[Rfam]
This 367-nucleotide RNA sequence from Calidithermus roseus belongs to the Rfam family "Bacterial RNase P class A".
It is annotated as a ribozyme.
The match comes from Rfam's covariance-model search (277 bits).
The family's consensus secondary structure is taken from published work.
RNA sequence: UGGGAAAGGGGCACGGUCGCGGAUGGGCAACCAUCUGAGGAAAGUCCGGGCUCCACAGGGCAGGGUGCCAGCUAACGGCUGGGCGGGGUAACCCGACGGAAUAGUGCAACAGAGAGCAGACCGCCGCCAGCAGGCGGUAAGGGUGAAACGGUGGGGUAAGAGCCCACCAGUGCCCCUGGAGACAGGGGGAGCUAGGCAAACCCCACCCGGUGCAAGGCCUACGUGAGGGCUUCGCCCUCGCGCACCACAGGGAGAGCUGGCCCGGCUCGCUUCACCUGUAGGGAUUGGCCGCUCGAGGUCGCUGGCGACAGCGAUCCCAGAUAGAUGACCGUGGAAACAGAACCCGGCUUACGCCCUUUCCCAGGCA
Dot-bracket structure: ((((((((((((((((((.(((((((....)))))))....[[[.[[[[[(.((...[[[[.((((((((((.....)))))(((((....)))).)((....((((.............((((((((....))))))..)).......((((((.......)))))).((.((((((....)))))).).)...))..))))))))))).)...((((...((((((.........................(((((.]]]]))))).))))))...........))))......((((((((....))))))))..........))))))).........]]]]]]]].).))))))))))....
Numbered sequence: 001u002g003g004g005a006a007a008g009g010g011g012c013a014c015g016g017u018c019g020c021g022g023a024u025g026g027g028c029a030a031c032c033a034u035c036u037g038a039g040g041a042a043a044g045u046c047c048g049g050g051c052u053c054c055a056c057a058g059g060g061c062a063g064g065g066u067g068c069c070a071g072c073u074a075a076c077g078g079c080u081g082g083g084c085g086g087g088g089u090a091a092c093c094c095g096a097c098g099g100a101a102u103a104g105u106g107c108a109a110c111a112g113a114g115a116g117c118a119g120a121c122c123g124c125c126g127c128c129a130g131c132a133g134g135c136g137g138u139a140a141g142g143g144u145g146a147a148a149c150g151g152u153g154g155g156g157u158a159a160g161a162g163c164c165c166a167c168c169a170g171u172g173c174c175c176c177u178g179g180a181g182a183c184a185g186g187g188g189g190a191g192c193u194a195g196g197c198a199a200a201c202c203c204c205a206c207c208c209g210g211u212g213c214a215a216g217g218c219c220u221a222c223g224u225g226a227g228g229g230c231u232u233c234g235c236c237c238u239c240g241c242g243c244a245c246c247a248c249a250g251g252g253a254g255a256g257c258u259g260g261c262c263c264g265g266c267u268c269g270c271u272u273c274a275c276c277u278g279u280a281g282g283g284a285u286u287g288g289c290c291g292c293u294c295g296a297g298g299u300c301g302c303u304g305g306c307g308a309c310a311g312c313g314a315u316c317c318c319a320g321a322u323a324g325a326u327g328a329c330c331g332u333g334g335a336a337a338c339a340g341a342a343c344c345c346g347g348c349u350u351a352c353g354c355c356c357u358u359u360c361c362c363a364g365g366c367a
Stems, first nucleotide, its partner, number of pairs: 001363010011352001012333007020037007042350003046347005051212001053210002058263004063208005068082005083097001084095004098203002104201002106197002121142002123138006150168006170192001171190001173188006216290004223275006254268005297316008